[Rfam]
RNA: S16-Flavobacteria ribosomal protein leader
Organism: Oncorhynchus mykiss
RNA sequence: AUUAAUAAACUUGGUCGAGAACCUUAAAAUUUAAU
Numbered sequence: 001a002u003u004a005a006u007a008a009a010c011u012u013g014g015u016c017g018a019g020a021a022c023c024u025u026a027a028a029a030u031u032u033a034a035u
Stems, first nucleotide, its partner, number of pairs: 001035005013023003